[Rfam]
RNA sequence: CGUUCAUCCAGAGCAGCCGAGGGACUGGCCCUACGACGCUGCGGCAACCCCCGUAAUCGGGAAGGUGCCAAAUCCAGCGGGUUUUCCGACAGAUGAAGC
Numbered sequence: 001c002g003u004u005c006a007u008c009c010a011g012a013g014c015a016g017c018c019g020a021g022g023g024a025c026u027g028g029c030c031c032u033a034c035g036a037c038g039c040u041g042c043g044g045c046a047a048c049c050c051c052c053g054u055a056a057u058c059g060g061g062a063a064g065g066u067g068c069c070a071a072a073u074c075c076a077g078c079g080g081g082u083u084u085u086c087c088g089a090c091a092g093a094u095g096a097a098g099c
Stems, first nucleotide, its partner, number of pairs: 003097006013042005021031003025077004043069004048065002050061004073091001078088004
Dot-bracket structure: ..((((((....(((((...(((.[[[[)))......)))))((((.((((((....))))..))))))...(]]]]((((...))))..)))))))..
This 99-nucleotide sequence from Megasphaera geminata belongs to the Rfam family "SAM riboswitch aptamer (S box leader)". The family's consensus secondary structure is taken from published work.